Overview: Guanidine-II riboswitch aptamer (mini-ykkC): a 48-nucleotide sequence from Rhodoplanes serenus. For this family Rfam cites "The Structure of the Guanidine-II Riboswitch" (Huang et al., Cell Chem Biol, 2017). Rfam describes the family as follows. Simpler in structure and has fewer highly conserved nucleotide positions than the ykkC-yxkD leader. A search with the family's covariance model found it, with a score of 48 bits.
RNA sequence: CCGGCGGGACGACCCGCCGGUGGAGCCGUCGAACUGGGGACGACCCCG
Numbered sequence: 001c002c003g004g005c006g007g008g009a010c011g012a013c014c015c016g017c018c019g020g021u022g023g024a025g026c027c028g029u030c031g032a033a034c035u036g037g038g039g040a041c042g043a044c045c046c047c048g
Stems, first nucleotide, its partner, number of pairs: 001020008035048005